[Rfam]
RNA sequence: AUCUGCCGUCAUUCCACUACGGAUCGUCCGGCACGUACCUGCCGGUGGAGGAAAAUCAU
Numbered sequence: 001a002u003c004u005g006c007c008g009u010c011a012u013u014c015c016a017c018u019a020c021g022g023a024u025c026g027u028c029c030g031g032c033a034c035g036u037a038c039c040u041g042c043c044g045g046u047g048g049a050g051g052a053a054a055a056u057c058a059u
Stems, first nucleotide, its partner, number of pairs: 010051001012050005028045006
RNA: msiK RNA